[Rfam]
The family of this 126-nucleotide part of an RNA from Acanthosepion pharaonis is "Eukaryotic small subunit ribosomal RNA".
The match comes from Rfam's covariance-model search (1447 bits).
The base pairs follow the family's consensus structure, which is taken from published work.
Taxonomically the source falls in Acanthosepion (Eukaryota, Eumetazoa, Cephalopoda, Decapodiformes).
Its Rfam clan is "SSU clan".
On this family, see Yusupov et al., Science 2001: "Crystal structure of the ribosome at 5.5 A resolution".
Its family is annotated with ribosome and structural constituent of ribosome in the Gene Ontology.

RNA sequence: GAAAGUCGGAGGUUCGAAGACGAUCAGAUACCGUCGUAGUUCCGACCGUAAACGAUGCCGACCGGCGAUCCGCCGGCGUUCGCUUCCAUGACCCGGCGGGUAGCCUGCGGGAAACCAGAGUUCGGU
Numbered sequence: 001g002a003a004a005g006u007c008g009g010a011g012g013u014u015c016g017a018a019g020a021c022g023a024u025c026a027g028a029u030a031c032c033g034u035c036g037u038a039g040u041u042c043c044g045a046c047c048g049u050a051a052a053c054g055a056u057g058c059c060g061a062c063c064g065g066c067g068a069u070c071c072g073c074c075g076g077c078g079u080u081c082g083c084u085u086c087c088a089u090g091a092c093c094c095g096g097c098g099g100g101u102a103g104c105c106u107g108c109g110g111g112a113a114a115c116c117a118g119a120g121u122u123c124g125g126u
Base pairs, nucleotide, nucleotide: 005046006045007044008043009042010041015039019035020034021033022032057126058125059124060122061121062120064105065104066103069100070099071098072097073096074095075094076093078092079091080090109116110115